[Rfam]
The record is a 596-nucleotide part of an RNA from Capsaspora owczarzaki, which matches "Eukaryotic large subunit ribosomal RNA" in Rfam. The sequence is in the family's curated seed alignment. The organism belongs to Capsaspora owczarzaki, within Eukaryota.
RNA sequence: CGGGGAAAGAAGACCCUGUUGAGCUUGACUCUAGUUUGACAUUGUGAAAAGACAUGAGGGGUGUAGAAUAAGUGGGAGCUUCGGCGCAAGUGAAAUACCACUACCUUCAUCGUUUUUUUACUUAUUUAAUGAAGCAGAAGCAGGCAGCAAUGCCUACUUUUUUGUGUUAAGGUGGUCUCGCACCGCCGAUCUGGGUUAAAGACAGUGUCAGGUGGGGAGUUUGGCUGGGGCGGCACAUCUGUUAAACAAUAACGCAGGUGUCCUAAGGUGAGCUCAAUGAGAACAGAAAUCUCAUGUCGACCAAAAGGGGAAAUGCUCACUUGAUUUUGAUUUUCAGUAUGAAUACAAACUGUGAAAGCAUGGCCUAUCGAUCCUUUAGUCUUUGGAAAUUUCAAGCUAGAGGUGUCAGAAAAGUUACCACAGGGAUAACUGGCUUGUGGCAGCCAAGCGCUCAUAGCGACGUUGCUUUUUGAUCCUUCGAUGUCGGCUCUUCCUAUCAUUGUGAAGCAGAAUUCACCAAGCGUUGGAUUGUUCACCCACUAACAGGGAACGUGAGCUGGGUUUAGACCGUCGUGAGACAGGUUAGUUUUACCCUA
Numbered sequence: 001c002g003g004g005g006a007a008a009g010a011a012g013a014c015c016c017u018g019u020u021g022a023g024c025u026u027g028a029c030u031c032u033a034g035u036u037u038g039a040c041a042u043u044g045u046g047a048a049a050a051g052a053c054a055u056g057a058g059g060g061g062u063g064u065a066g067a068a069u070a071a072g073u074g075g076g077a078g079c080u081u082c083g084g085c086g087c088a089a090g091u092g093a094a095a096u097a098c099c100a101c102u103a104c105c106u107u108c109a110u111c112g113u114u115u116u117u118u119u120a121c122u123u124a125u126u127u128a129a130u131g132a133a134g135c136a137g138a139a140g141c142a143g144g145c146a147g148c149a150a151u152g153c154c155u156a157c158u159u160u161u162u163u164g165u166g167u168u169a170a171g172g173u174g175g176u177c178u179c180g181c182a183c184c185g186c187c188g189a190u191c192u193g194g195g196u197u198a199a200a201g202a203c204a205g206u207g208u209c210a211g212g213u214g215g216g217g218a219g220u221u222u223g224g225c226u227g228g229g230g231c232g233g234c235a236c237a238u239c240u241g242u243u244a245a246a247c248a249a250u251a252a253c254g255c256a257g258g259u260g261u262c263c264u265a266a267g268g269u270g271a272g273c274u275c276a277a278u279g280a281g282a283a284c285a286g287a288a289a290u291c292u293c294a295u296g297u298c299g300a301c302c303a304a305a306a307g308g309g310g311a312a313a314u315g316c317u318c319a320c321u322u323g324a325u326u327u328u329g330a331u332u333u334u335c336a337g338u339a340u341g342a343a344u345a346c347a348a349a350c351u352g353u354g355a356a357a358g359c360a361u362g363g364c365c366u367a368u369c370g371a372u373c374c375u376u377u378a379g380u381c382u383u384u385g386g387a388a389a390u391u392u393c394a395a396g397c398u399a400g401a402g403g404u405g406u407c408a409g410a411a412a413a414g415u416u417a418c419c420a421c422a423g424g425g426a427u428a429a430c431u432g433g434c435u436u437g438u439g440g441c442a443g444c445c446a447a448g449c450g451c452u453c454a455u456a457g458c459g460a461c462g463u464u465g466c467u468u469u470u471u472g473a474u475c476c477u478u479c480g481a482u483g484u485c486g487g488c489u490c491u492u493c494c495u496a497u498c499a500u501u502g503u504g505a506a507g508c509a510g511a512a513u514u515c516a517c518c519a520a521g522c523g524u525u526g527g528a529u530u531g532u533u534c535a536c537c538c539a540c541u542a543a544c545a546g547g548g549a550a551c552g553u554g555a556g557c558u559g560g561g562u563u564u565a566g567a568c569c570g571u572c573g574u575g576a577g578a579c580a581g582g583u584u585a586g587u588u589u590u591a592c593c594c595u596a
Stems, first nucleotide, its partner, number of pairs: 003595003007590002015424004020420002022416005028220004035212007044121010054110007071102005078085002125200005135193004143154004171187005223236001224234003237259006262363002268320006274300002277295006301310002325349003330344004351360003374402006382396004433474001435472001437471001439467006448458002485560001486558004490552001491549005498523001502517005525539003529535001566584004570579003